[Rfam]
Nucleotides: 099
Base pairs, nucleotide, nucleotide: 002094003093004092005091006090007089012083013082014081015080017079018078019077020076025073026072
Number, partner (000 for none) and nucleotide at each position: 001000g002094a003093g004092c005091c006090a007089g008000c009000u010000u011000a012083g013082c014081c015080u016000a017079g018078c019077g020076g021000u022000u023000c024000c025073u026072u027000c028000a029000c030000a031000a032000u033000u034000u035000g036000u037000u038000a039000a040000a041000u042000u043000c044000g045000u046000g047000u048000u049000c050000a051000a052000c053000u054000c055000u056000a057000g058000c059000u060000c061000c062000u063000a064000g065000c066000a067000g068000u069000u070000c071000a072026a073025g074000u075000c076020c077019c078018g079017c080015g081014g082013g083012c084000g085000c086000u087000g088000u089007c090006u091005g092004g093003c094002u095000u096000u097000u098000g099000a